The family of this 101-nucleotide sequence from Plutella xylostella is "mir-8517 microRNA precursor family".
Pairs were carried over by alignment from the consensus structure, which was predicted with RNAalifold.
NCBI's taxonomy places the organism under Eukaryota, Panarthropoda, Arthropoda, Hexapoda, Plutella.
Its family is annotated with miRNA-mediated post-transcriptional gene silencing and RISC complex in the Gene Ontology.
The match comes from Rfam's covariance-model search (86 bits).

RNA sequence: UUACAGAACGUUUUAGCUAUUGAACUGUUGUCCCUAUCAAGGAACAAUUUGUUCUUGACAGAGAGGGACAAAACAGUUCAGUAGUUAAAACGUUCUGUAAC
Numbered sequence: 001u002u003a004c005a006g007a008a009c010g011u012u013u014u015a016g017c018u019a020u021u022g023a024a025c026u027g028u029u030g031u032c033c034c035u036a037u038c039a040a041g042g043a044a045c046a047a048u049u050u051g052u053u054c055u056u057g058a059c060a061g062a063g064a065g066g067g068a069c070a071a072a073a074c075a076g077u078u079c080a081g082u083a084g085u086u087a088a089a090a091c092g093u094u095c096u097g098u099a100a101c
Stems, first nucleotide, its partner, number of pairs: 001100006011090018029060004043053004
Dot-bracket structure: ((((((....((((((((((((((((((((((..........((((...))))...))))............))))))))))))))))))....)))))).